Shown here is a 77-nucleotide RNA sequence from Kosakonia cowanii, a member of the family "Enterobacterial sRNA STnc240".
RNA sequence: UCAACCUGGUGCAGAAUAUGCCGCUGCAAAAAAUAGAGAAGAUUAACCGACGUUCAACGCGUCGGUUAUUUUUUUGC
Numbered sequence: 001u002c003a004a005c006c007u008g009g010u011g012c013a014g015a016a017u018a019u020g021c022c023g024c025u026g027c028a029a030a031a032a033a034u035a036g037a038g039a040a041g042a043u044u045a046a047c048c049g050a051c052g053u054u055c056a057a058c059g060c061g062u063c064g065g066u067u068a069u070u071u072u073u074u075u076g077c
Base pairs, nucleotide, nucleotide: 011021012020044068045067046066047065048064049063050062051061052060
Source information: The source organism's lineage runs through Bacteria, Pseudomonadota, Enterobacterales, Kosakonia and Kosakonia cowanii. Rfam classes the family as a small RNA.